This 124-nucleotide RNA from Cicer arietinum belongs to the Rfam family "Small nucleolar RNA SNORA69". Rfam describes the family as follows. U69 is a member of the H/ACA class of small nucleolar RNAs (snoRNAs) which act as guides in the the modification of uridines to pseudouridines. Rfam 15.1 lists 808 matches to the family in 584 species.
RNA sequence: UGGGUGGGCAUAUUACAGCGCUUUUGUGAGAAAGCGCUGUAAUAUGCCCACCCAUAUAUGAGUUAUGGGUGUGCAUUUUAGAGCGCUUUGUUGAGAAAGCGCUGUAAAAUGCACACCCAUAACU
Numbered sequence: 001u002g003g004g005u006g007g008g009c010a011u012a013u014u015a016c017a018g019c020g021c022u023u024u025u026g027u028g029a030g031a032a033a034g035c036g037c038u039g040u041a042a043u044a045u046g047c048c049c050a051c052c053c054a055u056a057u058a059u060g061a062g063u064u065a066u067g068g069g070u071g072u073g074c075a076u077u078u079u080a081g082a083g084c085g086c087u088u089u090g091u092u093g094a095g096a097a098a099g100c101g102c103u104g105u106a107a108a109a110u111g112c113a114c115a116c117c118c119a120u121a122a123c124u
Base pairs, nucleotide, nucleotide: 001050002049003048004047016039017038018037019036020035021034022033023032024031063122064121065120066119067118068117069116070115071114072113073112079106080105082103083102084101085100086099087098088097089096
NCBI's taxonomy places the organism under Eukaryota, Embryophyta, rosids, Cicereae, Cicer.
It scores 48 bits against the family's covariance model.